[Rfam]
Description: Shown here is a 587-nucleotide part of an RNA from Actinomyces weissii, a member of the family "Bacterial large subunit ribosomal RNA". Gene Ontology terms of the family: ribosome and structural constituent of ribosome. NCBI's taxonomy places the organism under Bacteria, Bacillati, Actinomycetes, Actinomycetales, Actinomyces.
RNA sequence: CGCGCAGAAGGACGGAAAGACCCCGGGACCUUUACUACAGCUUGGUAUUGGCGCCCGCCCUGGCUUGUGCAGGAUAGGUGGGAGACCGUGAAACCGCCACGCCAGUGGUGGUGGAGUCGUCGUUGAAAUACCACUCUGGCCAUGGCGUGCGCCUGAACCUCGGCCCGUGACCCGGGCCAGGGACAGUGCCUGGUGGGUAGUUUAACUGGGGCGGUUGCCUCCUAAAAAGUAACGGAGGCGCUCAAAGGUCCCCUCAGCCUGGUCGGCAACCAGGUGUCGAGUGCAAGUGCACAAGGGGGCUUGACUGCGAGACCGACAGGUCAAGCAGGUGCGAAAGCAGGAACUAGUGAUCCGGCGAUCCCGAGUGGGUGGGUCGUCGCUCAACGGAUAAAAGGUACCCCGGGGAUAACAGGCUGAUCCUGCCCAAGAGUCCAUAUCGACGGCAUGGUUUGGCACCUCGAUGUCGGCUCGUCGCAUCCUGGGGCUGGAGCAGGUCCCAAGGGUUGGGCUGUUCGCCCAUUAAAGCGGUACGCGAGCUGGGUUUAGAACGUCGUGAGACAGUUCGGUCCCUAUCCUCUGCGCGCGCA
Numbered sequence: 001c002g003c004g005c006a007g008a009a010g011g012a013c014g015g016a017a018a019g020a021c022c023c024c025g026g027g028a029c030c031u032u033u034a035c036u037a038c039a040g041c042u043u044g045g046u047a048u049u050g051g052c053g054c055c056c057g058c059c060c061u062g063g064c065u066u067g068u069g070c071a072g073g074a075u076a077g078g079u080g081g082g083a084g085a086c087c088g089u090g091a092a093a094c095c096g097c098c099a100c101g102c103c104a105g106u107g108g109u110g111g112u113g114g115a116g117u118c119g120u121c122g123u124u125g126a127a128a129u130a131c132c133a134c135u136c137u138g139g140c141c142a143u144g145g146c147g148u149g150c151g152c153c154u155g156a157a158c159c160u161c162g163g164c165c166c167g168u169g170a171c172c173c174g175g176g177c178c179a180g181g182g183a184c185a186g187u188g189c190c191u192g193g194u195g196g197g198u199a200g201u202u203u204a205a206c207u208g209g210g211g212c213g214g215u216u217g218c219c220u221c222c223u224a225a226a227a228a229g230u231a232a233c234g235g236a237g238g239c240g241c242u243c244a245a246a247g248g249u250c251c252c253c254u255c256a257g258c259c260u261g262g263u264c265g266g267c268a269a270c271c272a273g274g275u276g277u278c279g280a281g282u283g284c285a286a287g288u289g290c291a292c293a294a295g296g297g298g299g300c301u302u303g304a305c306u307g308c309g310a311g312a313c314c315g316a317c318a319g320g321u322c323a324a325g326c327a328g329g330u331g332c333g334a335a336a337g338c339a340g341g342a343a344c345u346a347g348u349g350a351u352c353c354g355g356c357g358a359u360c361c362c363g364a365g366u367g368g369g370u371g372g373g374u375c376g377u378c379g380c381u382c383a384a385c386g387g388a389u390a391a392a393a394g395g396u397a398c399c400c401c402g403g404g405g406a407u408a409a410c411a412g413g414c415u416g417a418u419c420c421u422g423c424c425c426a427a428g429a430g431u432c433c434a435u436a437u438c439g440a441c442g443g444c445a446u447g448g449u450u451u452g453g454c455a456c457c458u459c460g461a462u463g464u465c466g467g468c469u470c471g472u473c474g475c476a477u478c479c480u481g482g483g484g485c486u487g488g489a490g491c492a493g494g495u496c497c498c499a500a501g502g503g504u505u506g507g508g509c510u511g512u513u514c515g516c517c518c519a520u521u522a523a524a525g526c527g528g529u530a531c532g533c534g535a536g537c538u539g540g541g542u543u544u545a546g547a548a549c550g551u552c553g554u555g556a557g558a559c560a561g562u563u564c565g566g567u568c569c570c571u572a573u574c575c576u577c578u579g580c581g582c583g584c585g586c587a
Stems, first nucleotide, its partner, number of pairs: 001583008010575003014570002022404006028396005034201004041193002044190004050153005056147004061142005067136001077135005084118003093112008158181003162178006204216004217239006240385001242342002248300006254280002257275006281290002305328004311322003330339003353379007361372002413454003417451001418448002421445004428438002465540001466538004470532001471529005478503002481498006505519005546564004550559003